[Rfam]
RNA sequence: GUGUGUGUGUGUGUGGAUAGUGUUCAGCACCAAGGACAGGCAUGUUACUGUGUGUGCGUGUGUGUGGAUAGUGUUCAGCACCAAGGACAGGCAUGUUACUGU
Numbered sequence: 001g002u003g004u005g006u007g008u009g010u011g012u013g014u015g016g017a018u019a020g021u022g023u024u025c026a027g028c029a030c031c032a033a034g035g036a037c038a039g040g041c042a043u044g045u046u047a048c049u050g051u052g053u054g055u056g057c058g059u060g061u062g063u064g065u066g067g068a069u070a071g072u073g074u075u076c077a078g079c080a081c082c083a084a085g086g087a088c089a090g091g092c093a094u095g096u097u098a099c100u101g102u
Base pairs, nucleotide, nucleotide: 004093005092006091008089009088010087018083020081021080022079023078024077026075027074028073029072030071032069034063036061037060038059040057041056042055043054044053045052

The family of this 102-nucleotide RNA from Branchiostoma belcheri is "mir-2060 microRNA precursor family".
NCBI's taxonomy places the organism under Eukaryota, Cephalochordata, Amphioxiformes, Branchiostomatidae, Branchiostoma.
Gene Ontology terms of the family: miRNA-mediated post-transcriptional gene silencing and RISC complex.